Annotation
Glycine riboswitch aptamer: a 90-nucleotide RNA sequence from Methylocystis parvus. It scores 72 bits against the family's covariance model. Pairs were carried over by alignment from the consensus structure.
[Rfam]
RNA sequence: GUCUCCUUCGCGGGAGAGACCGGCCAUGGCGCCGGCGCCGAAGGCGAAACCGCCCCGGAAACGCUCAGGCAAAAGGACCGCGAGGAGAAC
Numbered sequence: 001g002u003c004u005c006c007u008u009c010g011c012g013g014g015a016g017a018g019a020c021c022g023g024c025c026a027u028g029g030c031g032c033c034g035g036c037g038c039c040g041a042a043g044g045c046g047a048a049a050c051c052g053c054c055c056c057g058g059a060a061a062c063g064c065u066c067a068g069g070c071a072a073a074a075g076g077a078c079c080g081c082g083a084g085g086a087g088a089a090c
Stems, first nucleotide, its partner, number of pairs: 006085008020035004037070003040066002044064003050058002

Notes: Lineage of the source: Bacteria > Pseudomonadati > Pseudomonadota > Methylocystaceae > Methylocystis.